[Rfam]
RNA: FuFi-1 RNA
RNA sequence: UUCGUCAACUAAUGGGCUGCUAAUCUUUUUUACUUAAUUGCAGAACUAAAACUGCAUAAGUGGCGAAGUAUUUCAUAGAAACGCUUGGCGCCGCAGGUGUGACUGAACAUGUAUGUAAUGGUCUGGGGCUUCUGCAAUGGACUGGGGCUUAAGUGAACAGUCUGCAAAAUACAUAGGGUGAACAAAUUUAGGCAAAAGCUGAUGGGACGGCGCUCCUGUCAGCUUUUU
Numbered sequence: 001u002u003c004g005u006c007a008a009c010u011a012a013u014g015g016g017c018u019g020c021u022a023a024u025c026u027u028u029u030u031u032a033c034u035u036a037a038u039u040g041c042a043g044a045a046c047u048a049a050a051a052c053u054g055c056a057u058a059a060g061u062g063g064c065g066a067a068g069u070a071u072u073u074c075a076u077a078g079a080a081a082c083g084c085u086u087g088g089c090g091c092c093g094c095a096g097g098u099g100u101g102a103c104u105g106a107a108c109a110u111g112u113a114u115g116u117a118a119u120g121g122u123c124u125g126g127g128g129c130u131u132c133u134g135c136a137a138u139g140g141a142c143u144g145g146g147g148c149u150u151a152a153g154u155g156a157a158c159a160g161u162c163u164g165c166a167a168a169a170u171a172c173a174u175a176g177g178g179u180g181a182a183c184a185a186a187u188u189u190a191g192g193c194a195a196a197a198g199c200u201g202a203u204g205g206g207a208c209g210g211c212g213c214u215c216c217u218g219u220c221a222g223c224u225u226u227u228u
Stems, first nucleotide, its partner, number of pairs: 001067007039056005046191005068172006081100007088213006101162005108155003196225010206214001